This 80-nucleotide RNA sequence from Xenopus tropicalis belongs to the Rfam family "mir-31 microRNA precursor family".
On this family, see Ma et al., bioRxiv [Preprint] 2023: "Structure of pre-miR-31 reveals an active role in Dicer processing".
The organism belongs to Silurana, within Eukaryota.
Pairs were carried over by alignment from the consensus structure, which was predicted with RNAalifold.
Rfam's curators put it in the seed alignment.

Nucleotides: 080
Base pairs, nucleotide, nucleotide: 005075006074007073008072009071010070011069013067014066015065016064017063019061021059023057024056025055026054027053028052029051030050031049
Number, partner (000 for none) and nucleotide at each position: 001000u002000u003000c004000u005075a006074g007073a008072g009071a010070g011069g012000a013067g014066g015065c016064a017063a018000g019061a020000u021059g022000u023057u024056g025055g026054c027053a028052u029051a030050g031049c032000u033000g034000u035000u036000g037000c038000a039000u040000c041000u042000g043000a044000a045000a046000c047000c048000a049031g050030u051029u052028g053027u054026g055025c056024c057023a058000a059021c060000c061019u062000a063017u064016u065015g066014c067013c068000a069011u070010c071009u072008u073007u074006c075005u076000u077000g078000u079000c080000u